[Rfam]
RNA sequence: GUCGUCGUGAGGCGGGGUCUGAAGGAAGUCCAAUCCGAAAUUGCGGGGCGAUGAACAAAAACCGGAUAGGAGGCGUGAUGCACCCGGGACGAGCGGGCACGUGACCGCGAAGUCCUCCAUCUGCGCUUGGGGUGCAUUUUGUAAAUCCGGCGUCUACGCUAGGAAGGUAACGCGU
Numbered sequence: 001g002u003c004g005u006c007g008u009g010a011g012g013c014g015g016g017g018u019c020u021g022a023a024g025g026a027a028g029u030c031c032a033a034u035c036c037g038a039a040a041u042u043g044c045g046g047g048g049c050g051a052u053g054a055a056c057a058a059a060a061a062c063c064g065g066a067u068a069g070g071a072g073g074c075g076u077g078a079u080g081c082a083c084c085c086g087g088g089a090c091g092a093g094c095g096g097g098c099a100c101g102u103g104a105c106c107g108c109g110a111a112g113u114c115c116u117c118c119a120u121c122u123g124c125g126c127u128u129g130g131g132g133u134g135c136a137u138u139u140u141g142u143a144a145a146u147c148c149g150g151c152g153u154c155u156a157c158g159c160u161a162g163g164a165a166g167g168u169a170a171c172g173c174g175u
Base pairs, nucleotide, nucleotide: 002015003014004013005012006011028175029174031172036167041161043159044158045157046155047154048153049152050151062150063149064148065147066146067145073142074141075140077138078137079136080135081134082133083132087115088114089113090112093108094107095106096105